[Rfam]
RNA sequence: GUGAUUUUUUCAUAGUAUUAGAUUUUAAGGUUAACAAGGAUUGGGUAGUCGUGAGACUGCCCAUUUUUUAAUG
Numbered sequence: 001g002u003g004a005u006u007u008u009u010u011c012a013u014a015g016u017a018u019u020a021g022a023u024u025u026u027a028a029g030g031u032u033a034a035c036a037a038g039g040a041u042u043g044g045g046u047a048g049u050c051g052u053g054a055g056a057c058u059g060c061c062c063a064u065u066u067u068u069u070a071a072u073g
Base pairs, nucleotide, nucleotide: 044061045060046059047058048057049056050055